[Rfam]
RNA sequence: ACAGGCACUUGGCACCUUUAUGAUACCAUACAGGGAAGUCACAGGGCAGUCCCUGAGGGUCUGC
Numbered sequence: 001a002c003a004g005g006c007a008c009u010u011g012g013c014a015c016c017u018u019u020a021u022g023a024u025a026c027c028a029u030a031c032a033g034g035g036a037a038g039u040c041a042c043a044g045g046g047c048a049g050u051c052c053c054u055g056a057g058g059g060u061c062u063g064c
Base pairs, nucleotide, nucleotide: 002063003062004061005060006059008057009056012053016046017045018044019043021041022040023039024038
Rfam assigns this 64-nucleotide RNA from Macaca mulatta to the family "MAT2A 3'UTR stem loop B".
A reference for the family is Parker et al. (2011), "New families of human regulatory RNA structures identified by comparative analysis of vertebrate genomes", Genome Res.
The family has 28 seed sequences and 248 matches in Rfam 15.1.
Pairs were carried over by alignment from the consensus structure, which is taken from published work.